[Rfam]
RNA sequence: GCGAUGAGCUAAUUUGCAUAAGCCAACGGAUUUACCUUCGGGUUAAACGUACGAAUGUGGUCGUGCGGUCCAUUGCCGCAAACGCAUCAAAGACGCCUGUUUCUAACAGGCGUC
Numbered sequence: 001g002c003g004a005u006g007a008g009c010u011a012a013u014u015u016g017c018a019u020a021a022g023c024c025a026a027c028g029g030a031u032u033u034a035c036c037u038u039c040g041g042g043u044u045a046a047a048c049g050u051a052c053g054a055a056u057g058u059g060g061u062c063g064u065g066c067g068g069u070c071c072a073u074u075g076c077c078g079c080a081a082a083c084g085c086a087u088c089a090a091a092g093a094c095g096c097c098u099g100u101u102u103c104u105a106a107c108a109g110g111c112g113u114c
Stems, first nucleotide, its partner, number of pairs: 014081004024075003028071004034043002048067002051064003092114009

Shown here is a 114-nucleotide sequence from Bacillus sp. 1NLA3E, a member of the family "BsrF". For this family Rfam cites "Novel small RNA-encoding genes in the intergenic regions of Bacillus subtilis" (Saito et al., Gene, 2008). It is annotated as a small RNA.